Rfam assigns this 133-nucleotide RNA from Rattus norvegicus to the family "Small nucleolar RNA SNORA71". The family's consensus secondary structure was predicted with PFOLD. From the family's description: The members of this family belong to the H/ACA class of snoRNAs which bind a number of proteins (including dyskerin, Gar1p and Nop10p) to form snoRNP complexes. This class of snoRNAs are thought to guide the sites of modification of uridines to pseudouridines by forming direct base pairing interactions with substrate RNAs. This family includes U71 (SNORA71), ACA39 (SNORA39) and ACA60 (SNORA60). U71 and ACA60 are predicted to guide the pseudouridylation of U406 and U1004 in 18S rRNA respectively. The organism belongs to Rattus, within Eukaryota. The literature on the family includes a 1997 paper in Genes Dev by Ganot et al., "The family of box ACA small nucleolar RNAs is defined by an evolutionarily conserved secondary structure and ubiquitous sequence elements essential for RNA accumulation". It is annotated as an H/ACA-box small nucleolar RNA. Its family is annotated with nucleolus and RNA processing in the Gene Ontology. It is one of the family's seed sequences.
RNA sequence: ACCUGCAUUUGGAAGCCGACCACGGGCUGCCUGUGCUCUGGUCAUCCAUAAUGCAGGGAGAGGAGUUGCUGAAAGCCAUUUCCCGUGUUUGAAGGGUCCACUCCUCCCUCUCAAAUGCUGGUGCUUUCACACA
Numbered sequence: 001a002c003c004u005g006c007a008u009u010u011g012g013a014a015g016c017c018g019a020c021c022a023c024g025g026g027c028u029g030c031c032u033g034u035g036c037u038c039u040g041g042u043c044a045u046c047c048a049u050a051a052u053g054c055a056g057g058g059a060g061a062g063g064a065g066u067u068g069c070u071g072a073a074a075g076c077c078a079u080u081u082c083c084c085g086u087g088u089u090u091g092a093a094g095g096g097u098c099c100a101c102u103c104c105u106c107c108c109u110c111u112c113a114a115a116u117g118c119u120g121g122u123g124c125u126u127u128c129a130c131a132c133a
Stems, first nucleotide, its partner, number of pairs: 002057008015046001018043005024038004068130001070129007087116005093109004